[Rfam]
RNA sequence: AGGACCCCAGGAAGGGAUGAUGUUCUACUUAAGACUCAAGAAAAGGAUUCUGAGCCUCGGGCUUUGAAGGAGCCCUCUGGUCCCUGACCUUCCUCACCCAAG
Numbered sequence: 001a002g003g004a005c006c007c008c009a010g011g012a013a014g015g016g017a018u019g020a021u022g023u024u025c026u027a028c029u030u031a032a033g034a035c036u037c038a039a040g041a042a043a044a045g046g047a048u049u050c051u052g053a054g055c056c057u058c059g060g061g062c063u064u065u066g067a068a069g070g071a072g073c074c075c076u077c078u079g080g081u082c083c084c085u086g087a088c089c090u091u092c093c094u095c096a097c098c099c100a101a102g
Base pairs, nucleotide, nucleotide: 009094010093011092012091013090014089015088
This 102-nucleotide RNA sequence from Cavia porcellus belongs to the Rfam family "Small nucleolar RNA SNORD124". The family's consensus secondary structure was predicted with WAR. The literature on the family includes a 2006 paper in Nucleic Acids Res by Yang et al., "snoSeeker: an advanced computational package for screening of guide and orphan snoRNA genes in the human genome". It is annotated as a C/D-box small nucleolar RNA. Rfam 15.1 lists 191 matches to the family in 183 species.